[Rfam]
RNA sequence: UGUGAAGAUAGAGGUUGCGUGAUCUAUGAGUAGCCGGUCUGAUGUGGCAGGAACAGGAGACGACGGGUGAAAGGAGAGAACGCCGAAAGGGUAUGUUACCUGACAGGCAUAUUCCUUGGGCACUUGGCGAACAGCCAUUUGACUGUCAUCUGGCAACGGAUGGGGCGCUAUCAGAGGU
Number, nucleotide and partner (000 for none) at each position: 001u000002g000003u000004g000005a000006a000007g172008a171009u170010a169011g168012a000013g000014g000015u000016u000017g083018c082019g081020u080021g000022a000023u077024c076025u075026a000027u000028g000029a000030g000031u000032a000033g068034c067035c066036g000037g064038u063039c062040u000041g000042a000043u000044g000045u000046g000047g000048c000049a000050g000051g000052a000053a000054c000055a000056g000057g000058a000059g000060a000061c000062g039063a038064c037065g000066g035067g034068u033069g000070a000071a000072a000073g000074g000075a025076g024077a023078g000079a000080a020081c019082g018083c017084c000085g000086a000087a117088a116089g115090g114091g113092u000093a000094u000095g000096u000097u107098a000099c000100c000101u000102g000103a000104c000105a000106g000107g097108c000109a000110u000111a000112u000113u091114c090115c089116u088117u087118g144119g143120g000121c141122a140123c000124u000125u137126g136127g135128c134129g000130a000131a000132c000133a000134g128135c127136c126137a125138u000139u000140u122141g121142a000143c119144u118145g000146u163147c162148a161149u160150c159151u158152g157153g000154c000155a000156a000157c152158g151159g150160a149161u148162g147163g146164g000165g000166c000167g000168c011169u010170a009171u008172c007173a000174g000175a000176g000177g000178u000

Shown here is a 178-nucleotide RNA sequence from Roseburia sp. CAG:182, a member of the family "Lysine riboswitch aptamer".
Pairs were carried over by alignment from the consensus structure, which is taken from published work.
NCBI's taxonomy places the organism under Bacteria, Bacillati, Clostridia, Lachnospiraceae, Roseburia.
A search with the family's covariance model found it, with a score of 102 bits.